[Rfam]
The family of this 138-nucleotide RNA sequence from Pelodiscus sinensis is "Small nucleolar RNA SNORA64/SNORA10 family". It is annotated as an H/ACA-box small nucleolar RNA. A reference for the family is Narayanan et al. (1999), "Nucleolar localization signals of box H/ACA small nucleolar RNAs", EMBO J.

RNA sequence: AUUCUCUCAGCUCUGCUCAAUUACACUUGGUUAAAGUAGUGUAAUUGUCGUCAUUGGAGAGAGAGAGAGAAUGAGUUCAAUAUGCACGGCAGAGGGACCUUGAUAUGGUUUCCCUGUUCCUUUUCAAACUCUACAUUU
Numbered sequence: 001a002u003u004c005u006c007u008c009a010g011c012u013c014u015g016c017u018c019a020a021u022u023a024c025a026c027u028u029g030g031u032u033a034a035a036g037u038a039g040u041g042u043a044a045u046u047g048u049c050g051u052c053a054u055u056g057g058a059g060a061g062a063g064a065g066a067g068a069g070a071a072u073g074a075g076u077u078c079a080a081u082a083u084g085c086a087c088g089g090c091a092g093a094g095g096g097a098c099c100u101u102g103a104u105a106u107g108g109u110u111u112c113c114c115u116g117u118u119c120c121u122u123u124u125c126a127a128a129c130u131c132u133a134c135a136u137u138u
Base pairs, nucleotide, nucleotide: 002067003066004065005064006063007062008061011059012058013057014056015055019046020045021044022043023042024041025040026039076128077127080124082121084119091115092114095111096110097109098108099107